[Rfam]
Shown here is an 84-nucleotide sequence from Listeria innocua, a member of the family "ctRNA". Pairs were carried over by alignment from the consensus structure, which was predicted with ILM.
RNA sequence: UAGAAAACUGCUCCUUUGAGUGUUUUUAGAUACGCAUGAAGAUUCUCUCGACGAAAAGUGUUUCUUCAUGCUUUUAUUAUACCA
Numbered sequence: 001u002a003g004a005a006a007a008c009u010g011c012u013c014c015u016u017u018g019a020g021u022g023u024u025u026u027u028a029g030a031u032a033c034g035c036a037u038g039a040a041g042a043u044u045c046u047c048u049c050g051a052c053g054a055a056a057a058g059u060g061u062u063u064c065u066u067c068a069u070g071c072u073u074u075u076a077u078u079a080u081a082c083c084a
Base pairs, nucleotide, nucleotide: 004027005026006025007024009022010021011020012019013018032073034071035070036069037068038067039066040065041064042063

It is one of the family's seed sequences. About the family: Rolling circle replication plasmids contain a number of mechanisms to maintain a low copy number. On this family, see Duan et al., FEMS Microbiol Lett 1998: "Involvement of antisense RNA in replication control of the lactococcal plasmid pND324". The family's RNA type in Rfam is antisense RNA. Rfam links the family to the GO terms mRNA binding and plasmid copy number maintenance.